Rfam assigns this 387-nucleotide sequence to the family "Pseudomonas sRNA CrcZ". Gene Ontology term of the family: carbon catabolite repression of transcription. The family has 19 seed sequences and 127 matches in Rfam 15.1. For this family Rfam cites "Identification of 17 Pseudomonas aeruginosa sRNAs and prediction of sRNA-encoding genes in 10 diverse pathogens using the bioinformatic tool sRNAPredict2" (Livny et al., Nucleic Acids Res, 2006).
[Rfam]
RNA sequence: ACAAAAACAAUAACAAGCUUUGUACAAGACAAUAAAAAUAAGACGAAUCGACUCACGCAUAACAAAAACAACACGGCGGAGGCGCAGCUAACUGAUUCUUUUGGAGAGGCGUUGCAUUUGGGGCUUGCCCCGCAACCAGGCCGAGAACAACAAAAACUGCCCUAAGGCAGAGCCUGAACUGGUUGGAUCGUAGAUCAGCAACACAGCGACCAAAGCAAUCCGUUUGCUCUUGGCUCCUGAUUGGGAGUGUCAUGAAGGAAGCUUCGUGGCGAGGGCGAUCAACAAAAACAAGAAGCCCGACAUCAAUAAUAAAAAUAGAGCACGCAACUACUUCUGGGGGAGCUUCGGCUCCCCUUGUAGUUUCCGGGAUUUGACCUUCAAACGCUU
Numbered sequence: 001a002c003a004a005a006a007a008c009a010a011u012a013a014c015a016a017g018c019u020u021u022g023u024a025c026a027a028g029a030c031a032a033u034a035a036a037a038a039u040a041a042g043a044c045g046a047a048u049c050g051a052c053u054c055a056c057g058c059a060u061a062a063c064a065a066a067a068a069c070a071a072c073a074c075g076g077c078g079g080a081g082g083c084g085c086a087g088c089u090a091a092c093u094g095a096u097u098c099u100u101u102u103g104g105a106g107a108g109g110c111g112u113u114g115c116a117u118u119u120g121g122g123g124c125u126u127g128c129c130c131c132g133c134a135a136c137c138a139g140g141c142c143g144a145g146a147a148c149a150a151c152a153a154a155a156a157c158u159g160c161c162c163u164a165a166g167g168c169a170g171a172g173c174c175u176g177a178a179c180u181g182g183u184u185g186g187a188u189c190g191u192a193g194a195u196c197a198g199c200a201a202c203a204c205a206g207c208g209a210c211c212a213a214a215g216c217a218a219u220c221c222g223u224u225u226g227c228u229c230u231u232g233g234c235u236c237c238u239g240a241u242u243g244g245g246a247g248u249g250u251c252a253u254g255a256a257g258g259a260a261g262c263u264u265c266g267u268g269g270c271g272a273g274g275g276c277g278a279u280c281a282a283c284a285a286a287a288a289c290a291a292g293a294a295g296c297c298c299g300a301c302a303u304c305a306a307u308a309a310u311a312a313a314a315a316u317a318g319a320g321c322a323c324g325c326a327a328c329u330a331c332u333u334c335u336g337g338g339g340g341a342g343c344u345u346c347g348g349c350u351c352c353c354c355u356u357g358u359a360g361u362u363u364c365c366g367g368g369a370u371u372u373g374a375c376c377u378u379c380a381a382a383c384g385c386u387u
Stems, first nucleotide, its partner, number of pairs: 049084002052081003099215005113208003133185007157170005233248005267369001270366002273298004318363004336355008